[Rfam]
RNA sequence: ACCACGUACUUACCUACUAUAUAGUAGGUGAAAUAUAUGUAUCUCAACUUCUAUGUAGUAGGUAAGUAUGUGGUUU
Numbered sequence: 001a002c003c004a005c006g007u008a009c010u011u012a013c014c015u016a017c018u019a020u021a022u023a024g025u026a027g028g029u030g031a032a033a034u035a036u037a038u039g040u041a042u043c044u045c046a047a048c049u050u051c052u053a054u055g056u057a058g059u060a061g062g063u064a065a066g067u068a069u070g071u072g073g074u075u076u
Stems, first nucleotide, its partner, number of pairs: 001074015017058008026049002029046003033042003

About this RNA:
The family of this 76-nucleotide sequence from Ameiurus melas is "mir-7563 microRNA precursor family". Pairs were carried over by alignment from the consensus structure, which was predicted with RNAalifold. The organism belongs to Ameiurus, within Eukaryota.